Rfam assigns this 65-nucleotide RNA sequence from Paraburkholderia sp. DHOC27 to the family "Fluoride riboswitch aptamer (crcB RNA motif)".

RNA sequence: UUCUGUCAGGGAGAUGGCAUUCUCCUUAAACGCCAGAUCGACUGGCUGAUGAUGCCUACUGUUUC
Numbered sequence: 001u002u003c004u005g006u007c008a009g010g011g012a013g014a015u016g017g018c019a020u021u022c023u024c025c026u027u028a029a030a031c032g033c034c035a036g037a038u039c040g041a042c043u044g045g046c047u048g049a050u051g052a053u054g055c056c057u058a059c060u061g062u063u064u065c
Stems, first nucleotide, its partner, number of pairs: 010025004016056006032046004
The literature on the family includes a 2012 paper in Science by Baker et al., "Widespread genetic switches and toxicity resistance proteins for fluoride".